[Rfam]
RNA: Small nucleolar RNA Z122
RNA sequence: UUUUGGAUGUGAUGCAAAAUUACUUUUCCAGAGGUUGUUUCUGAUGUGAGGUUUAGUCCUCUACAUAUGCUGGAUAUUUGCACGUCAGCCUGAUCUAAAA
Numbered sequence: 001u002u003u004u005g006g007a008u009g010u011g012a013u014g015c016a017a018a019a020u021u022a023c024u025u026u027u028c029c030a031g032a033g034g035u036u037g038u039u040u041c042u043g044a045u046g047u048g049a050g051g052u053u054u055a056g057u058c059c060u061c062u063a064c065a066u067a068u069g070c071u072g073g074a075u076a077u078u079u080g081c082a083c084g085u086c087a088g089c090c091u092g093a094u095c096u097a098a099a100a
Stems, first nucleotide, its partner, number of pairs: 001100007